[Rfam]
RNA sequence: AUAACCUUUAAUCAUGUCCAGAGAGGCAUCAAAGGUCUACAGGAAAAAGGGUGCAGUGUACCCAAAUUUUGUGUAGCCUCGCCUUUUUGGUGGGGCUUUUCUGUGU
Numbered sequence: 001a002u003a004a005c006c007u008u009u010a011a012u013c014a015u016g017u018c019c020a021g022a023g024a025g026g027c028a029u030c031a032a033a034g035g036u037c038u039a040c041a042g043g044a045a046a047a048a049g050g051g052u053g054c055a056g057u058g059u060a061c062c063c064a065a066a067u068u069u070u071g072u073g074u075a076g077c078c079u080c081g082c083c084u085u086u087u088u089g090g091u092g093g094g095g096c097u098u099u100u101c102u103g104u105g106u
Stems, first nucleotide, its partner, number of pairs: 004036006014029005046068001049063006071101001073099001075097009
The family of this 106-nucleotide RNA sequence from Streptococcus minor is "PyrR binding site". For this family Rfam cites "Molecular recognition of pyr mRNA by the Bacillus subtilis attenuation regulatory protein PyrR" (Bonner et al., Nucleic Acids Res, 2001). Rfam describes the family as follows. This family represents the PyrR binding site and terminator structure. This RNA structure is found upstream of a variety of genes involved in pyrimidine biosynthesis and transport. By type it is a cis-regulatory element. Its family is annotated with pyrimidine nucleobase transport and pyrimidine nucleobase biosynthetic process in the Gene Ontology. The source organism's lineage runs through Bacteria, Bacillati, Bacillota, Bacilli and Streptococcus. The base pairs follow the family's consensus structure, which is taken from published work.